[Rfam]
RNA sequence: AGAUGAGAGAAACACCCCGCCCGCAGGGGACUGCGGGCGACUCCAUGGCGUGGCCUCCCCAGCCCCGCCCUGGCCGUGCCCUCGCGCACACCACCGGAGCUUCGCGCUCCGGAUCUCCUCUCCGAUCGGA
Numbered sequence: 001a002g003a004u005g006a007g008a009g010a011a012a013c014a015c016c017c018c019g020c021c022c023g024c025a026g027g028g029g030a031c032u033g034c035g036g037g038c039g040a041c042u043c044c045a046u047g048g049c050g051u052g053g054c055c056u057c058c059c060c061a062g063c064c065c066c067g068c069c070c071u072g073g074c075c076g077u078g079c080c081c082u083c084g085c086g087c088a089c090a091c092c093a094c095c096g097g098a099g100c101u102u103c104g105c106g107c108u109c110c111g112g113a114u115c116u117c118c119u120c121u122c123c124g125a126u127c128g129g130a
Stems, first nucleotide, its partner, number of pairs: 005120003009117002018039009043073003047069001049067002052064003076089004094112007122129002
Shown here is a 130-nucleotide sequence from Streptomyces wuyuanensis, a member of the family "Streptomyces RNA 5676".
The source organism's lineage runs through Bacteria, Bacillati, Kitasatosporales, Streptomycetaceae and Streptomyces.
Rfam describes the family as follows. Identified by deep sequencing of transcriptome at the end of exponential growth phase. Appears longer on northern blot than sequencing transcript. This indicates processing step. Streptomyces specific.
By type it is a small RNA.